[Rfam]
This 102-nucleotide RNA sequence belongs to the Rfam family "Bacteroidales small SRP". Rfam classes the family as a non-coding RNA gene. A search with the family's covariance model found it, with a score of 67 bits. The family is grouped with related families in Rfam's "SRP clan". Gene Ontology terms of the family: SRP-dependent cotranslational protein targeting to membrane, signal sequence recognition and signal recognition particle, plasma membrane targeting. A reference for the family is Ryan et al. (2020), "A high-resolution transcriptome map identifies small RNA regulation of metabolism in the gut microbe Bacteroides thetaiotaomicron", Nat Commun.

RNA sequence: UGCACCCGUGAGGGACAUACGGUCUGCUCCUUCUGAACUCCCCCAGGGCAGAAAUGCAGCAAGGGUAGGAGGUUGAGCGACUCGGUGUGUUUCCUCACACUU
Numbered sequence: 001u002g003c004a005c006c007c008g009u010g011a012g013g014g015a016c017a018u019a020c021g022g023u024c025u026g027c028u029c030c031u032u033c034u035g036a037a038c039u040c041c042c043c044c045a046g047g048g049c050a051g052a053a054a055u056g057c058a059g060c061a062a063g064g065g066u067a068g069g070a071g072g073u074u075g076a077g078c079g080a081c082u083c084g085g086u087g088u089g090u091u092u093c094c095u096c097a098c099a100c101u102u
Base pairs, nucleotide, nucleotide: 008098009097010096011095012094013093014092015090016089017088018087019086020084021083022081023080